[Rfam]
RNA sequence: UGGUGCUUGCUGGAUGUAACAGCAACUCCAUGUGGAAGCGCUGUGUGUUCCAGUGGAGGUGCUGUUACCUGCAGAGAGUCG
Number, nucleotide and partner (000 for none) at each position: 001u000002g000003g000004u000005g000006c000007u000008u000009g000010c074011u073012g072013g000014a000015u000016g068017u067018a066019a065020c064021a063022g062023c061024a000025a000026c058027u057028c056029c055030a054031u053032g000033u052034g051035g050036a000037a000038g000039c000040g000041c000042u000043g000044u000045g000046u000047g000048u000049u000050c035051c034052a033053g031054u030055g029056g028057a027058g026059g000060u000061g023062c022063u021064g020065u019066u018067a017068c016069c000070u000071g000072c012073a011074g010075a000076g000077a000078g000079u000080c000081g000